Notes
Rfam assigns this 85-nucleotide sequence from Lucilia cuprina to the family "mir-9/mir-79 microRNA precursor family".
[Rfam]
RNA sequence: AUUAUUUGUUCUUUGGUGAUUUUAGCUGUAUGGUUAAAUAUAUACAUAAAAUUCCAUAGAGCUUUAUUACCAAAAACCAAAUGGU
Numbered sequence: 001a002u003u004a005u006u007u008g009u010u011c012u013u014u015g016g017u018g019a020u021u022u023u024a025g026c027u028g029u030a031u032g033g034u035u036a037a038a039u040a041u042a043u044a045c046a047u048a049a050a051a052u053u054c055c056a057u058a059g060a061g062c063u064u065u066a067u068u069a070c071c072a073a074a075a076a077c078c079a080a081a082u083g084g085u
Base pairs, nucleotide, nucleotide: 001085002084003083004082005081007079008078010076012074013073014072015071016070017069018068019067020066024063025062026061027060029058030057031056032055033054
Rfam links the family to the GO terms miRNA-mediated post-transcriptional gene silencing and RISC complex. For this family Rfam cites "Temporal regulation of microRNA expression in Drosophila melanogaster mediated by hormonal signals and broad-Complex gene activity" (Sempere et al., Dev Biol, 2003).